This 80-nucleotide RNA from Abrus precatorius belongs to the Rfam family "Small nucleolar RNA Z105". The match comes from Rfam's covariance-model search (56 bits). It is annotated as a C/D-box small nucleolar RNA. A reference for the family is Chen et al. (2003), "The high diversity of snoRNAs in plants: identification and comparative study of 120 snoRNA genes from Oryza sativa", Nucleic Acids Res. Rfam links the family to the GO terms nucleolus and RNA processing.
[Rfam]
RNA sequence: UCGGCAUGAUGAUGAUGAUAUUGAUUAAUAUUUUCAUAUGAUGAUUCAAAUGAUGAAUACAAUCCUCCUACUCAUUCUGA
Numbered sequence: 001u002c003g004g005c006a007u008g009a010u011g012a013u014g015a016u017g018a019u020a021u022u023g024a025u026u027a028a029u030a031u032u033u034u035c036a037u038a039u040g041a042u043g044a045u046u047c048a049a050a051u052g053a054u055g056a057a058u059a060c061a062a063u064c065c066u067c068c069u070a071c072u073c074a075u076u077c078u079g080a
Base pairs, nucleotide, nucleotide: 006075007074008073009072034056035055036054037053